The record is a 48-nucleotide RNA from Roseivivax sediminis, which matches "SAM/SAH riboswitch aptamer" in Rfam. Lineage of the source: Bacteria > Pseudomonadati > Alphaproteobacteria > Roseobacteraceae > Roseivivax. Pairs were carried over by alignment from the consensus structure, which is taken from published work. The match comes from Rfam's covariance-model search (63 bits).
RNA sequence: UUCCUGCCACAACGGCUUCCUGGCGUGGCAGUUGUAUCAAAUGGAGCA
Dot-bracket structure: ...(((((((..(([[[.[[))..)))))))...........]]]]].